Mycobacterium sRNA Ms_IGR-8: a 63-nucleotide sequence from Mycobacteroides abscessus. By type it is a small RNA. The pairing is the family consensus, mapped onto this sequence. On this family, see Li et al., RNA 2013: "Identification of small RNAs in Mycobacterium smegmatis using heterologous Hfq". The sequence is in the family's curated seed alignment. NCBI's taxonomy places the organism under Bacteria, Bacillati, Actinomycetota, Mycobacteriales, Mycobacteroides.
RNA sequence: CUAUAGCACUGUCGCGAGCGUGAAGCUGCUGUGGGAAAUCAGUGGAUUUGUCGCAGCAGCUUC
Numbered sequence: 001c002u003a004u005a006g007c008a009c010u011g012u013c014g015c016g017a018g019c020g021u022g023a024a025g026c027u028g029c030u031g032u033g034g035g036a037a038a039u040c041a042g043u044g045g046a047u048u049u050g051u052c053g054c055a056g057c058a059g060c061u062u063c
Stems, first nucleotide, its partner, number of pairs: 022063013035049001039045001